A member of the RNA family "Lysine riboswitch aptamer" from Bacillus safensis, 178 nucleotides long.
RNA sequence: GUUGAAGAUAGAGGUGCGAACUUCAAGAGUAAGCCUUCGGAGAUCGAUGGGAUCUAAGAAGAGGGGUGAAAGGGGAGCGUCGCCGAAGUGAAUAAAAUCCACUCAUUUUAUUCGCUGGCUGUACAUUGAAGAAAUGUAGGGCUGUCAAGAAUUCAUUUCUUGGAGGGCUAUCUCAUUG
Numbered sequence: 001g002u003u004g005a006a007g008a009u010a011g012a013g014g015u016g017c018g019a020a021c022u023u024c025a026a027g028a029g030u031a032a033g034c035c036u037u038c039g040g041a042g043a044u045c046g047a048u049g050g051g052a053u054c055u056a057a058g059a060a061g062a063g064g065g066g067u068g069a070a071a072g073g074g075g076a077g078c079g080u081c082g083c084c085g086a087a088g089u090g091a092a093u094a095a096a097a098u099c100c101a102c103u104c105a106u107u108u109u110a111u112u113c114g115c116u117g118g119c120u121g122u123a124c125a126u127u128g129a130a131g132a133a134a135u136g137u138a139g140g141g142c143u144g145u146c147a148a149g150a151a152u153u154c155a156u157u158u159c160u161u162g163g164a165g166g167g168c169u170a171u172c173u174c175a176u177u178g
Stems, first nucleotide, its partner, number of pairs: 006173006016083004021077004032067001034065005087116012117143004122138006145163007
Rfam links the family to the GO term lysine biosynthetic process. About the family: Riboswitches are metabolite binding domains within certain messenger RNAs that serve as precision sensors for their corresponding targets. Allosteric rearrangement of mRNA structure is mediated by ligand binding, and this results in modulation of gene expression. This family includes riboswitches that sense lysine in a number of genes involved in lysine metabolism, including lysC.